[Rfam]
RNA sequence: GGUUGUUGAGGUCGGAAAGGGUUCCCGACACACCUUAUAUAAGGUACCUGAGAUGUAGGAUACACCGCCCUACCAAUAACC
Numbered sequence: 001g002g003u004u005g006u007u008g009a010g011g012u013c014g015g016a017a018a019g020g021g022u023u024c025c026c027g028a029c030a031c032a033c034c035u036u037a038u039a040u041a042a043g044g045u046a047c048c049u050g051a052g053a054u055g056u057a058g059g060a061u062a063c064a065c066c067g068c069c070c071u072a073c074c075a076a077u078a079a080c081c
Stems, first nucleotide, its partner, number of pairs: 001081008011029005020066003031050001032045004055073005